[Rfam]
Rfam assigns this 199-nucleotide RNA from Pseudomonas sp. HAR-UPW-AIA-41 to the family "RgsA sRNA". A search with the family's covariance model found it, with a score of 156 bits. The literature on the family includes a 2016 paper in Curr Microbiol by Huerta et al., "The Role of the ncRNA RgsA in the Oxidative Stress Response and Biofilm Formation in Azotobacter vinelandii". The base pairs follow the family's consensus structure, which was predicted with RNAalifold. About the family: This small RNA (sRNA) was computationally identified in the genome of the opportunistic pathogen Pseudomonas aeruginosa and its expression verified by northern blot analysis. P16 sRNA appears to be conserved across several Pseudomonas species and Azotobacter vinelandii. Rfam classes the family as a small RNA.
RNA sequence: AAGCGUUCUGUCAGGUAUUCCAAAAGUGUUUAAAAAAAGCGGCGGGCUCCGCUGGACUUCGUGCAAGUCUGACCAAUACUCGUAACUACCGGUGCGCGGCAACUCCCCCCCUAACUGCCCCGCCGGUCGAGGUACCGUGGAUCGCGUACCUUGUUUUACUCCUAAUGGUCUUGACCCGGAUUCAUCCCCCAGAACCCGG
Numbered sequence: 001a002a003g004c005g006u007u008c009u010g011u012c013a014g015g016u017a018u019u020c021c022a023a024a025a026g027u028g029u030u031u032a033a034a035a036a037a038a039g040c041g042g043c044g045g046g047c048u049c050c051g052c053u054g055g056a057c058u059u060c061g062u063g064c065a066a067g068u069c070u071g072a073c074c075a076a077u078a079c080u081c082g083u084a085a086c087u088a089c090c091g092g093u094g095c096g097c098g099g100c101a102a103c104u105c106c107c108c109c110c111c112u113a114a115c116u117g118c119c120c121c122g123c124c125g126g127u128c129g130a131g132g133u134a135c136c137g138u139g140g141a142u143c144g145c146g147u148a149c150c151u152u153g154u155u156u157u158a159c160u161c162c163u164a165a166u167g168g169u170c171u172u173g174a175c176c177c178g179g180a181u182u183c184a185u186c187c188c189c190c191a192g193a194a195c196c197c198g199g
Stems, first nucleotide, its partner, number of pairs: 039170001043167002088127004095122002098119001100117002128153008136144001176199004181194003